A member of the RNA family "Listeria sRNA rli38" from Enterococcus thailandicus, 164 nucleotides long. The match comes from Rfam's covariance-model search (117 bits). By type it is a small RNA.
RNA sequence: GUUGAGUGGGAAUAAAGAGCUAACAUAAUAUGGAUGGGGAACGCCUAUAAAUCAACAUUCUUCAGUUGCUAAAUAGCUUGAUUUUCAUUAAAAAUGAUAUGGUUCCCUACCAUUUUCCCUACCAAAAAUCCCUUGUCAGAUUAACGUUUGACAAGGGAUUUUUC
Dot-bracket structure: .......(((((....................................(((((((..(..((.(.....).))..).)))))))((((.....)))).....)))))...................((((((((((((((......))))))))))))))....
Numbered sequence: 001g002u003u004g005a006g007u008g009g010g011a012a013u014a015a016a017g018a019g020c021u022a023a024c025a026u027a028a029u030a031u032g033g034a035u036g037g038g039g040a041a042c043g044c045c046u047a048u049a050a051a052u053c054a055a056c057a058u059u060c061u062u063c064a065g066u067u068g069c070u071a072a073a074u075a076g077c078u079u080g081a082u083u084u085u086c087a088u089u090a091a092a093a094a095u096g097a098u099a100u101g102g103u104u105c106c107c108u109a110c111c112a113u114u115u116u117c118c119c120u121a122c123c124a125a126a127a128a129u130c131c132c133u134u135g136u137c138a139g140a141u142u143a144a145c146g147u148u149u150g151a152c153a154a155g156g157g158a159u160u161u162u163u164c
Stems, first nucleotide, its partner, number of pairs: 008107005049084007058076001061073002064070001085097004127160014